This 306-nucleotide RNA from Drosophila busckii belongs to the Rfam family "RNase MRP".
RNA sequence: UGAGUUUUUCAUGCUUGUCUCUCGGGGUCACACACGAGCUCCUGGUAGCUCUUCAAUCGCACCCUGGGUAAAGUCCCCGGGCCUAGGAUAGAAAGUAUCAAGGCGUAAAAUACUUCGCCUAUAUUCUGCGGUAUCUCGCCUUGCGUACUUCCAACAAAGAGAGUUUUUCUCGAGUUGCUGCGCUCGGUUGACUGCGGAAAUGUGCCAGAGUAUUUCAAUAAGAUAUAGGCGAGUUGUUGGCAAAGGGGGCGUGUAAUAGCGCCCCCCUAAUCCACUACACAGAAUGGGGCUUACGUUGGGAAAUUC
Numbered sequence: 001u002g003a004g005u006u007u008u009u010c011a012u013g014c015u016u017g018u019c020u021c022u023c024g025g026g027g028u029c030a031c032a033c034a035c036g037a038g039c040u041c042c043u044g045g046u047a048g049c050u051c052u053u054c055a056a057u058c059g060c061a062c063c064c065u066g067g068g069u070a071a072a073g074u075c076c077c078c079g080g081g082c083c084u085a086g087g088a089u090a091g092a093a094a095g096u097a098u099c100a101a102g103g104c105g106u107a108a109a110a111u112a113c114u115u116c117g118c119c120u121a122u123a124u125u126c127u128g129c130g131g132u133a134u135c136u137c138g139c140c141u142u143g144c145g146u147a148c149u150u151c152c153a154a155c156a157a158a159g160a161g162a163g164u165u166u167u168u169c170u171c172g173a174g175u176u177g178c179u180g181c182g183c184u185c186g187g188u189u190g191a192c193u194g195c196g197g198a199a200a201u202g203u204g205c206c207a208g209a210g211u212a213u214u215u216c217a218a219u220a221a222g223a224u225a226u227a228g229g230c231g232a233g234u235u236g237u238u239g240g241c242a243a244a245g246g247g248g249g250c251g252u253g254u255a256a257u258a259g260c261g262c263c264c265c266c267c268u269a270a271u272c273c274a275c276u277a278c279a280c281a282g283a284a285u286g287g288g289g290c291u292u293a294c295g296u297u298g299g300g301a302a303a304u305u306c
Base pairs, nucleotide, nucleotide: 002306003305004304005303006302007301008300009299010298011297014233015232016231017230018229019228022067023066024065025064026063027062028061036051037050038049039048040047071292072291073290075289076288077287078286087099088098089097090096101120102119103118104117122191130188132186142182143181144180152177153176154175155174162170163169236275237274239272240271
Source information
Rfam 15.1 lists 3,510 matches to the family in 2,315 species. RNase MRP is an enzymatically active ribonucleoprotein with two distinct roles in eukaryotes. The family's RNA type in Rfam is ribozyme.